[Rfam]
Rfam assigns this 94-nucleotide sequence from Paenibacillus sp. HGF7 to the family "ylbH leader". The base pairs follow the family's consensus structure. This family is a putative regulatory RNA structure that is found upstream of the ylbH gene in B. subtilis and related low GC Gram-positive bacteria. NCBI's taxonomy places the organism under Bacteria, Bacillati, Bacillota, Bacilli, Paenibacillus. A reference for the family is Barrick et al. (2004), "New RNA motifs suggest an expanded scope for riboswitches in bacterial genetic control", Proc Natl Acad Sci U S A. Gene Ontology term of the family: regulation of gene expression.

RNA sequence: AUAAAAAUCGGCCCCCGUAUCACUACGAGGGCCUUUCAUGGGAGAGGAGAAACCGGACGAAGAGCUUAUGGGGAAACGUAAGUCUUCUCCGCGG
Numbered sequence: 001a002u003a004a005a006a007a008u009c010g011g012c013c014c015c016c017g018u019a020u021c022a023c024u025a026c027g028a029g030g031g032c033c034u035u036u037c038a039u040g041g042g043a044g045a046g047g048a049g050a051a052a053c054c055g056g057a058c059g060a061a062g063a064g065c066u067u068a069u070g071g072g073g074a075a076a077c078g079u080a081a082g083u084c085u086u087c088u089c090c091g092c093g094g
Stems, first nucleotide, its partner, number of pairs: 011032004016027004033042003054091004059087004064083005